Shown here is a 206-nucleotide RNA sequence from Drosophila willistoni, a member of the family "R2 RNA element". The organism belongs to Sophophora, within Eukaryota. Pairs were carried over by alignment from the consensus structure, which is taken from published work. It is annotated as a cis-regulatory element. For this family Rfam cites "Secondary structure models of the 3' untranslated regions of diverse R2 RNAs" (Ruschak et al., RNA, 2004). The match comes from Rfam's covariance-model search (148 bits).
RNA sequence: ACUAACCUCUAGUUUCUCCUAUACUUUUGCCUGCUACCUUGGCAUUCCAUCUAAAAAGGUACAAACAAUGCAUUGUUAAAAAGAGGUGGUUUUAGUACGUAGGCACUGUGGGACUUCAUUGUCCCGAUGAUGCAGCGAAUCGUGCAUACGAGAUUGUCCAGUAGUUGGUUGCUCGUAUCUUUAGAAAAUUUCCUUCCUCGGCGAUC
Number, nucleotide and partner (000 for none) at each position: 001a000002c000003u000004a000005a000006c000007c000008u000009c000010u000011a000012g000013u000014u000015u000016c000017u000018c000019c000020u000021a000022u000023a000024c000025u000026u000027u000028u000029g000030c000031c000032u000033g000034c000035u061036a060037c059038c058039u057040u056041g000042g000043c000044a000045u000046u000047c000048c000049a000050u000051c000052u000053a000054a000055a000056a040057a039058g038059g037060u036061a035062c000063a000064a000065a000066c000067a205068a000069u203070g202071c201072a000073u000074u000075g000076u000077u000078a000079a000080a000081a000082a000083g199084a198085g197086g196087u000088g193089g192090u000091u000092u000093u000094a000095g145096u144097a143098c142099g141100u000101a000102g000103g000104c137105a000106c135107u134108g133109u132110g125111g124112g123113a122114c121115u000116u000117c000118a000119u000120u000121g114122u113123c112124c111125c110126g000127a000128u000129g000130a000131u000132g109133c108134a107135g106136c000137g104138a000139a000140u000141c099142g098143u097144g096145c095146a000147u177148a176149c175150g174151a173152g172153a000154u000155u000156g000157u000158c000159c000160a000161g000162u000163a000164g000165u000166u000167g000168g000169u000170u000171g000172c152173u151174c150175g149176u148177a147178u000179c000180u000181u000182u000183a000184g000185a000186a000187a000188a000189u000190u000191u000192c089193c088194u000195u000196c086197c085198u084199c083200g000201g071202c070203g069204a000205u067206c000